RNA sequence: CGACUCCCCCACGGUAAAGGCGAGCAGCCAGCCGGAAGCGAGUCUUGCACGGCGUACGGUAACGUGCGUCGUGAAGCGUAGACAGCGGGUGCUGAAGCCCUGCUAUGGAGCCUCGACAUCAUGUGCUGCUGAGGUCCUCGUUUUGUUGGAAACGGGGACAGCAUUUUCCGGUCCGUUAUGCGAGGACCGGGAGGCUCGGCCGGGGUCUGAGAACA
Numbered sequence: 001c002g003a004c005u006c007c008c009c010c011a012c013g014g015u016a017a018a019g020g021c022g023a024g025c026a027g028c029c030a031g032c033c034g035g036a037a038g039c040g041a042g043u044c045u046u047g048c049a050c051g052g053c054g055u056a057c058g059g060u061a062a063c064g065u066g067c068g069u070c071g072u073g074a075a076g077c078g079u080a081g082a083c084a085g086c087g088g089g090u091g092c093u094g095a096a097g098c099c100c101u102g103c104u105a106u107g108g109a110g111c112c113u114c115g116a117c118a119u120c121a122u123g124u125g126c127u128g129c130u131g132a133g134g135u136c137c138u139c140g141u142u143u144u145g146u147u148g149g150a151a152a153c154g155g156g157g158a159c160a161g162c163a164u165u166u167u168c169c170g171g172u173c174c175g176u177u178a179u180g181c182g183a184g185g186a187c188c189g190g191g192a193g194g195c196u197c198g199g200c201c202g203g204g205g206u207c208u209g210a211g212a213a214c215a
Stems, first nucleotide, its partner, number of pairs: 012034004019029003024181002038086002042083004046078002048073011108207001110206006128200006134159003139154004164194011